Shown here is a 193-nucleotide RNA sequence from Nocardioides perillae, a member of the family "Actinobacteria sRNA Ms_IGR-5". The match comes from Rfam's covariance-model search (110 bits). It is annotated as a small RNA. NCBI's taxonomy places the organism under Bacteria, Bacillati, Propionibacteriales, Nocardioidaceae, Nocardioides.
[Rfam]
RNA sequence: ACACGAGGAAGGAGGUGGUCCGAGAACAUGGUUUCACUCAGGACGCGUGAGGUGGCUGCGCGCUAGCAGCCGGCUGAUAGCCGACAGGGCUGCUGGCGAAUCCACCGCAGCCACCCGACCCGCAGACGAACCGGUCGCACGUCCGCCGGUGCGGUCCCCCCUCUGGGGUGACCACGUCUGCGGGUCGUCUGCG
Dot-bracket structure: ..............(((((...................................))))).(((((((.(((................))).))))))).................(((((((((((((.((((((.........))))))........................)))))))))))))......